The record is a 95-nucleotide RNA from Stagnimonas aquatica, which matches "Glycine riboswitch aptamer" in Rfam. This family represents the bacterial glycine riboswitch. NCBI's taxonomy places the organism under Bacteria, Pseudomonadota, Gammaproteobacteria, Nevskiales, Stagnimonas. A search with the family's covariance model found it, with a score of 50 bits.
RNA sequence: CAGAUGCACGCAGGAGAGCGGUGGCGCCGCCAGGCGCUGCCCACCGAAGGCGCAAACUCCCAUGAACGCUCAGGUCCAGUGACUGCGGGUAUCGA
Numbered sequence: 001c002a003g004a005u006g007c008a009c010g011c012a013g014g015a016g017a018g019c020g021g022u023g024g025c026g027c028c029g030c031c032a033g034g035c036g037c038u039g040c041c042c043a044c045c046g047a048a049g050g051c052g053c054a055a056a057c058u059c060c061c062a063u064g065a066a067c068g069c070u071c072a073g074g075u076c077c078a079g080u081g082a083c084u085g086c087g088g089g090u091a092u093c094g095a
Stems, first nucleotide, its partner, number of pairs: 006090002009087005020041006043075003046071002050069003056063001